[Rfam]
RNA sequence: UAAUAGCUCCACGGGAGCCCGAUCUUCCGCCAGUGUUCCUACACUCGCGGUCGGUAGGGCUGAGAGGGCGUUCGACGCCGACCGUACGAACCUGAACCGGUUAAGCCCGGCGUAGGAAGGACUCUGAUGACUAUU
Numbered sequence: 001u002a003a004u005a006g007c008u009c010c011a012c013g014g015g016a017g018c019c020c021g022a023u024c025u026u027c028c029g030c031c032a033g034u035g036u037u038c039c040u041a042c043a044c045u046c047g048c049g050g051u052c053g054g055u056a057g058g059g060c061u062g063a064g065a066g067g068g069c070g071u072u073c074g075a076c077g078c079c080g081a082c083c084g085u086a087c088g089a090a091c092c093u094g095a096a097c098c099g100g101u102u103a104a105g106c107c108c109g110g111c112g113u114a115g116g117a118a119g120g121a122c123u124c125u126g127a128u129g130a131c132u133a134u135u
Stems, first nucleotide, its partner, number of pairs: 006123001008121003011085004017060004067079005091116004097110004
RNA: TPP riboswitch aptamer (THI element)